[Rfam]
RNA sequence: CUGGGAAGCGCACGGCCGCAAAUCUGACUUCGUCACGCCAAUUGCGUGACUCGGGAUUGCGGAAGUGC
Numbered sequence: 001c002u003g004g005g006a007a008g009c010g011c012a013c014g015g016c017c018g019c020a021a022a023u024c025u026g027a028c029u030u031c032g033u034c035a036c037g038c039c040a041a042u043u044g045c046g047u048g049a050c051u052c053g054g055g056a057u058u059g060c061g062g063a064a065g066u067g068c
Stems, first nucleotide, its partner, number of pairs: 010068004016062006024055002032050007

A member of the RNA family "S15-Halobacteria ribosomal protein leader", 68 nucleotides long.
The sequence is in the family's curated seed alignment.
The literature on the family includes a 2020 paper in BMC Microbiol by Eckert and Weinberg, "Discovery of 20 novel ribosomal leader candidates in bacteria and archaea".